Rfam assigns this 129-nucleotide RNA sequence from Microtus ochrogaster to the family "Small nucleolar RNA SNORA8". Its Rfam clan is "SNORA8 clan". Pairs were carried over by alignment from the consensus structure, which was predicted with RNAfold. ACA8 is a member of the H/ACA class of snoRNA that guide the sites of modification of uridines to pseudouridines. Lineage of the source: Eukaryota > Gnathostomata > Euarchontoglires > Myomorpha > Microtus. The family's RNA type in Rfam is H/ACA-box small nucleolar RNA.
RNA sequence: UUUAGUGAUGGGUAUACUAUGGAAAUAAUAUAUGUAGUUCAAAAGACAGUAAAAUAGAAAUUCACUAUCUGGCAUCGUUGGUUUCCUGGCUUUGUGCAAGAUAAACCUGGUAUUUCUAAUGAUACAGUU
Numbered sequence: 001u002u003u004a005g006u007g008a009u010g011g012g013u014a015u016a017c018u019a020u021g022g023a024a025a026u027a028a029u030a031u032a033u034g035u036a037g038u039u040c041a042a043a044a045g046a047c048a049g050u051a052a053a054a055u056a057g058a059a060a061u062u063c064a065c066u067a068u069c070u071g072g073c074a075u076c077g078u079u080g081g082u083u084u085c086c087u088g089g090c091u092u093u094g095u096g097c098a099a100g101a102u103a104a105a106c107c108u109g110g111u112a113u114u115u116c117u118a119a120u121g122a123u124a125c126a127g128u129u
Base pairs, nucleotide, nucleotide: 002052003051004050006048007047015043016038017037018036019035020034021033022031055118056117057116058115059114060113061112062110063109064108072097073096074095075094